[Rfam]
RNA: Bacterial RNase P class A
Organism: Moraxella caviae
RNA sequence: UUGGCAAGCCAGACAAUCGCUGCCCGACCACUUAAUCUAAGGAUUUUUAGCAAACGGUGUUUUAGAUGUUUAGAUUAAGUGGUCGGGGAGAGGAAAGUCCGGGCUACACAGGGCGACGUGCUAGCUAACGGCUAGGGGGCGCAAGCCUACGACCAGUGCAACAGAGAGCAGACCGCUCCGCUACCUUUUGAUAAUUUGCUGAUUAUAAAAGCAUUAAAGUUGUUAAAAGGUAGCGGAGUAAGGGUGAAAGGGUGCGGUAAGAGCGCACCGCAUGGCUGGCAACAGUUCAUGGCAGGGUAAACUCCACGUGUAGCAAGACCAAAUAGGAACUCAAUCGGUUGCCCGCCGAGAGUUCGGGUAGGUUGCUUGAGCGUGUUGGCGACAGCACGCCUAGAUGAAUGAUUGUCCACGACAGAACCCGGCUUAUCGGUUUGCCAAAAAU
Number, nucleotide and partner (000 for none) at each position: 001u438002u437003g436004g435005c434006a433007a432008g431009c430010c429011a427012g407013a406014c405015a404016a403017u402018c401019g000020c090021u089022g000023c087024c086025c085026g084027a083028c082029c081030a080031c079032u078033u077034a076035a075036u074037c073038u072039a071040a070041g069042g000043a000044u000045u000046u000047u000048u000049a000050g000051c000052a000053a000054a000055c000056g000057g000058u000059g000060u000061u000062u000063u000064a000065g000066a000067u000068g000069u041070u040071u039072a038073g037074a036075u035076u034077a033078a032079g031080u030081g029082g028083u027084c026085g025086g024087g023088g000089a021090g020091a000092g000093g000094a000095a425096a424097g423098u000099c422100c421101g420102g419103g418104c313105u312106a311107c310108a000109c000110a000111g344112g343113g342114c341115g000116a309117c308118g307119u306120g305121c135122u134123a133124g132125c131126u000127a000128a000129c000130g000131g125132c124133u123134a122135g121136g150137g148138g147139g146140c145141g000142c000143a000144a000145g140146c139147c138148u137149a000150c136151g304152a303153c000154c000155a000156g302157u301158g298159c297160a000161a000162c000163a000164g000165a000166g000167a000168g000169c000170a000171g000172a000173c243174c242175g239176c238177u237178c236179c235180g234181c233182u232183a231184c230185c229186u228187u227188u226189u225190g224191a223192u222193a221194a220195u219196u218197u217198g000199c000200u000201g000202a000203u000204u000205a000206u000207a000208a000209a000210a000211g000212c000213a000214u000215u000216a000217a197218a196219g195220u194221u193222g192223u191224u190225a189226a188227a187228a186229g185230g184231u183232a182233g181234c180235g179236g178237a177238g176239u175240a000241a000242g174243g173244g000245u000246g000247a000248a000249a000250g000251g269252g268253u267254g266255c265256g264257g000258u000259a000260a000261g000262a000263g000264c256265g255266c254267a253268c252269c251270g293271c291272a290273u289274g288275g287276c285277u284278g283279g000280c000281a000282a000283c278284a277285g276286u000287u275288c274289a273290u272291g271292g000293c270294a000295g000296g000297g159298u158299a000300a000301a157302c156303u152304c151305c120306a119307c118308g117309u116310g107311u106312a105313g104314c000315a000316a000317g364318a363319c362320c361321a000322a000323a000324u000325a000326g000327g355328a354329a353330c352331u351332c350333a000334a000335u349336c348337g347338g346339u345340u000341g114342c113343c112344c111345g339346c338347c337348g336349a335350g332351a331352g330353u329354u328355c327356g000357g000358g000359u000360a000361g320362g319363u318364u317365g000366c000367u000368u000369g000370a000371g390372c389373g388374u387375g386376u385377u384378g383379g000380c000381g000382a000383c378384a377385g376386c375387a374388c373389g372390c371391c000392u000393a000394g000395a000396u000397g000398a000399a000400u000401g018402a017403u016404u015405g014406u013407c012408c000409a000410c000411g000412a000413c000414a000415g000416a000417a000418c103419c102420c101421g100422g099423c097424u096425u095426a000427u011428c000429g010430g009431u008432u007433u006434g005435c004436c003437a002438a001439a000440a000441a000442u000